[Rfam]
RNA: Glycine riboswitch aptamer
Organism: Magnetospirillum moscoviense
RNA sequence: AUGACCCCCGCGGGAGAGUCUGAUCCACAACAUCUUGUGUUGUGAGGUCGGCGCCGAAGGAGCAACCGCCCCUGGAAACUCUCAGGCAAACGGACCGUGGGGCGAUG
Number, nucleotide and partner (000 for none) at each position: 001a000002u000003g000004a000005c000006c102007c101008c100009c099010g098011c097012g096013g095014g000015a000016g000017a000018g000019u000020c051021u050022g049023a048024u047025c046026c000027a000028c000029a000030a000031c000032a000033u000034c000035u000036u000037g000038u000039g000040u000041u000042g000043u000044g000045a000046g025047g024048u023049c022050g021051g020052c000053g087054c086055c085056g083057a082058a000059g000060g081061a080062g079063c000064a000065a000066c074067c000068g000069c000070c000071c000072c000073u000074g066075g000076a000077a000078a000079c062080u061081c060082u057083c056084a000085g055086g054087c053088a000089a000090a000091c000092g000093g000094a000095c013096c012097g011098u010099g009100g008101g007102g006103c000104g000105a000106u000107g000